This 176-nucleotide RNA sequence from Clostridium baratii belongs to the Rfam family "Lysine riboswitch aptamer".
The source organism's lineage runs through Bacteria, Bacillati, Clostridia, Eubacteriales and Clostridium baratii.
A search with the family's covariance model found it, with a score of 120 bits.

RNA sequence: AUUUGAGGUAGAGGUGCAAAUUUUAAGAGUAAUAUUAAUGAGGUAAGCACAAUGAUUUAAUAUGAAAGGAAAAUUUGCCGAAGUGUAUAACUAAUGCUUUAAGGUUAUAUUGCUGGUCUUACAUAUAAUAUGUGUAAGAUUGUCACAAAGUUUUUUUGUGGAGAGCUAUCAUUCGA
Numbered sequence: 001a002u003u004u005g006a007g008g009u010a011g012a013g014g015u016g017c018a019a020a021u022u023u024u025a026a027g028a029g030u031a032a033u034a035u036u037a038a039u040g041a042g043g044u045a046a047g048c049a050c051a052a053u054g055a056u057u058u059a060a061u062a063u064g065a066a067a068g069g070a071a072a073a074u075u076u077g078c079c080g081a082a083g084u085g086u087a088u089a090a091c092u093a094a095u096g097c098u099u100u101a102a103g104g105u106u107a108u109a110u111u112g113c114u115g116g117u118c119u120u121a122c123a124u125a126u127a128a129u130a131u132g133u134g135u136a137a138g139a140u141u142g143u144c145a146c147a148a149a150g151u152u153u154u155u156u157u158g159u160g161g162a163g164a165g166c167u168a169u170c171a172u173u174c175g176a
Base pairs, nucleotide, nucleotide: 007170008169009168010167011166016078017077018076019075020074021073022072023071024070032063033062034061035060036059037058038057082114083113084112085111086109087108088107089106090105091104092103115141116140117139118138119137120136121135122134123133124132125131143161144160145159146158147157148156149155